About this RNA: c-di-AMP riboswitch aptamer (ydaO/yuaA leader): a 145-nucleotide RNA from Terribacillus sp. AE2B 122. Taxonomically the source falls in Terribacillus (Bacteria, Bacillati, Caryophanales, Bacillaceae). A search with the family's covariance model found it, with a score of 62 bits.
[Rfam]
RNA sequence: AUUUCGUAAUCGCUUAAUUCCUGAAUAUAGGAAGGAGAGGAACCAAUCGUAACUUUUGAUACACGGGGUGAAUCUUUGAAAAGAGUAGGGCUACUCUCUGGCCCGAAUCUGUUAGCUAACAUUGUAACCGUUCGAGAGGAAGCCG
Numbered sequence: 001a002u003u004u005c006g007u008a009a010u011c012g013c014u015u016a017a018u019u020c021c022u023g024a025a026u027a028u029a030g031g032a033a034g035g036a037g038a039g040g041a042a043c044c045a046a047u048c049g050u051a052a053c054u055u056u057u058g059a060u061a062c063a064c065g066g067g068g069u070g071a072a073u074c075u076u077u078g079a080a081a082a083g084a085g086u087a088g089g090g091c092u093a094c095u096c097u098c099u100g101g102c103c104c105g106a107a108u109c110u111g112u113u114a115g116c117u118a119a120c121a122u123u124g125u126a127a128c129c130g131u132u133c134g135a136g137a138g139g140a141a142g143c144c145g
Stems, first nucleotide, its partner, number of pairs: 011130002014127001018033006034125001036123002039120001044065001066110003074085004088104004